[Rfam]
RNA sequence: UGGUGCCUGGCUCCUUGUAUGCCAUAUGUGGAGCACACCGAAGGGCGGUGGCCUUCGCAAAUGGCUUGCCAGGAGCUAUGCACGU
Numbered sequence: 001u002g003g004u005g006c007c008u009g010g011c012u013c014c015u016u017g018u019a020u021g022c023c024a025u026a027u028g029u030g031g032a033g034c035a036c037a038c039c040g041a042a043g044g045g046c047g048g049u050g051g052c053c054u055u056c057g058c059a060a061a062u063g064g065c066u067u068g069c070c071a072g073g074a075g076c077u078a079u080g081c082a083c084g085u
Stems, first nucleotide, its partner, number of pairs: 003083004008078007017069003021065004027059003
The family of this 85-nucleotide sequence from Dorcoceras hygrometricum is "mir-160 microRNA precursor family". The family's consensus secondary structure was predicted with PFOLD. It scores 49 bits against the family's covariance model. NCBI's taxonomy places the organism under Eukaryota, Streptophytina, Pentapetalae, Didymocarpoideae, Dorcoceras. Gene Ontology terms of the family: miRNA-mediated post-transcriptional gene silencing and RISC complex.